[Rfam]
RNA sequence: UGGUGCCCAGUGUGGGCCUGGAUACUGGGGACAACAUGAGGGACAUGACGGAGUAAAGAAGGGGUGCACACCUGAUCAAACAAUAGUUCGGAGACGUUGUGGUAGCCUGCUGUGACCGAGCCAACAGGUAAGUUGGUCGUGCAAUUUAAAUCAUGGGGCAAGCAUUGAGUCAGCAUCAGAAAUAUGUGAUACAGUUAAGAGAAGCAUUACAGGCAAGAGGAGUAAAGGUUACGACUGAAGAUUUAUUUCAUUUUUUUGAUUUUGUGAAAGACAUCUGCCCAU
Numbered sequence: 001u002g003g004u005g006c007c008c009a010g011u012g013u014g015g016g017c018c019u020g021g022a023u024a025c026u027g028g029g030g031a032c033a034a035c036a037u038g039a040g041g042g043a044c045a046u047g048a049c050g051g052a053g054u055a056a057a058g059a060a061g062g063g064g065u066g067c068a069c070a071c072c073u074g075a076u077c078a079a080a081c082a083a084u085a086g087u088u089c090g091g092a093g094a095c096g097u098u099g100u101g102g103u104a105g106c107c108u109g110c111u112g113u114g115a116c117c118g119a120g121c122c123a124a125c126a127g128g129u130a131a132g133u134u135g136g137u138c139g140u141g142c143a144a145u146u147u148a149a150a151u152c153a154u155g156g157g158g159c160a161a162g163c164a165u166u167g168a169g170u171c172a173g174c175a176u177c178a179g180a181a182a183u184a185u186g187u188g189a190u191a192c193a194g195u196u197a198a199g200a201g202a203a204g205c206a207u208u209a210c211a212g213g214c215a216a217g218a219g220g221a222g223u224a225a226a227g228g229u230u231a232c233g234a235c236u237g238a239a240g241a242u243u244u245a246u247u248u249c250a251u252u253u254u255u256u257u258g259a260u261u262u263u264g265u266g267a268a269a270g271a272c273a274u275c276u277g278c279c280c281a282u
Stems, first nucleotide, its partner, number of pairs: 006030003012025003035047003088128002090125001095118002098114005140160003145157004166209003169205002217257006226244005267282001270279001272277001

A member of the RNA family "Mason-Pfizer monkey virus packaging signal" from Nannospalax galili, 282 nucleotides long. Rfam describes the family as follows. This family represents a group of sequences that are related to the Mason-Pfizer monkey virus (MPMV) packaging signal. The packaging signal is located in the 5' UTR and is required for specific RNA encapsidation. The match comes from Rfam's covariance-model search (132 bits).